[Rfam]
RNA sequence: AUGAAGAAGCUAUGAAACUCAGGAUGGAUAGCGCUAUGGAUGGUUAAAACAAGCAAUAUUGUUAUUAAGCUCAUGUAUAAUAUUCAUCCAUGGCGCUAUCCCUCCUGAGCUUUACAGAUUCUCCCA
Numbered sequence: 001a002u003g004a005a006g007a008a009g010c011u012a013u014g015a016a017a018c019u020c021a022g023g024a025u026g027g028a029u030a031g032c033g034c035u036a037u038g039g040a041u042g043g044u045u046a047a048a049a050c051a052a053g054c055a056a057u058a059u060u061g062u063u064a065u066u067a068a069g070c071u072c073a074u075g076u077a078u079a080a081u082a083u084u085c086a087u088c089c090a091u092g093g094c095g096c097u098a099u100c101c102c103u104c105c106u107g108a109g110c111u112u113u114a115c116a117g118a119u120u121c122u123c124c125c126a
Stems, first nucleotide, its partner, number of pairs: 010117001016111001018109007026101012
MIR390 microRNA precursor family: a 126-nucleotide RNA from Nicotiana sylvestris.